[Rfam]
RNA sequence: ACUGCCGCCGGACGGUGCGGGUCGUGAGGAACAGGAUUCCCCACAGACGGGCCCGACCGAGAAUCGCCAGGGUUUACAGGGAGCCCCGGCGGAUUCGCUCCGGCGAAGGAG
Numbered sequence: 001a002c003u004g005c006c007g008c009c010g011g012a013c014g015g016u017g018c019g020g021g022u023c024g025u026g027a028g029g030a031a032c033a034g035g036a037u038u039c040c041c042c043a044c045a046g047a048c049g050g051g052c053c054c055g056a057c058c059g060a061g062a063a064u065c066g067c068c069a070g071g072g073u074u075u076a077c078a079g080g081g082a083g084c085c086c087c088g089g090c091g092g093a094u095u096c097g098c099u100c101c102g103g104c105g106a107a108g109g110a111g
Base pairs, nucleotide, nucleotide: 006105007104008103009102010101011100012099013059014058015057016056018055019054020053021052022051023050028040029039031037061096062095063094064092065091066090070086071085072084073083

The record is a 111-nucleotide RNA sequence, which matches "Actinomyces-1 RNA" in Rfam. The family's consensus secondary structure is taken from published work. Rfam classes the family as a small RNA. The sequence is in the family's curated seed alignment.